[Rfam]
Rfam assigns this 131-nucleotide RNA from Phycicoccus elongatus to the family "FMN riboswitch aptamer (RFN element)". The organism belongs to Phycicoccus elongatus, within Bacteria. The family's consensus secondary structure is taken from published work.
RNA sequence: UCACGUGCUCCGGGGUCGGUGCAAUUCCGAACCGGUGGUGACAGUCCACGACCCGCUCGCAGCCAGCCAGCGGUUGAUCCGGUGAAACUCCGGGACCGACGGUGAAAGUCCGGAUGGUAGGCAGCACGUGC
Numbered sequence: 001u002c003a004c005g006u007g008c009u010c011c012g013g014g015g016u017c018g019g020u021g022c023a024a025u026u027c028c029g030a031a032c033c034g035g036u037g038g039u040g041a042c043a044g045u046c047c048a049c050g051a052c053c054c055g056c057u058c059g060c061a062g063c064c065a066g067c068c069a070g071c072g073g074u075u076g077a078u079c080c081g082g083u084g085a086a087a088c089u090c091c092g093g094g095a096c097c098g099a100c101g102g103u104g105a106a107a108g109u110c111c112g113g114a115u116g117g118u119a120g121g122c123a124g125c126a127c128g129u130g131c
Base pairs, nucleotide, nucleotide: 003129004128005127006126007125008124009123010120017029018028019027031109032108033098034097035049036048037047038046044096045095053073054072078094079093080092081091082090100112101111102110